[Rfam]
RNA sequence: CAUUUGUGAGAACCUUUUGAAUCACUAAAUUACUUGAUUCAAAAGGUUCUCA
Numbered sequence: 001c002a003u004u005u006g007u008g009a010g011a012a013c014c015u016u017u018u019g020a021a022u023c024a025c026u027a028a029a030u031u032a033c034u035u036g037a038u039u040c041a042a043a044a045g046g047u048u049c050u051c052a
Stems, first nucleotide, its partner, number of pairs: 007052018
The record is a 52-nucleotide sequence from Passiflora tenuiloba, which matches "Plastid-ccsA-ndhD-2 3UTR RNA" in Rfam. Rfam classes the family as a cis-regulatory element. The literature on the family includes a 2023 paper in Plant Commun by Richter et al., "Retrograde signaling in plants: A critical review focusing on the GUN pathway and beyond". Rfam 15.1 lists 875 matches to the family in 517 species. The base pairs follow the family's consensus structure, which was predicted with LocARNA. NCBI's taxonomy places the organism under Eukaryota, Mesangiospermae, eudicotyledons, Passifloraceae, Passiflora. Plastid ccsA-ndhD-2 is a non-coding RNA (ncRNA) recognised in plastids. The sequence is in the family's curated seed alignment.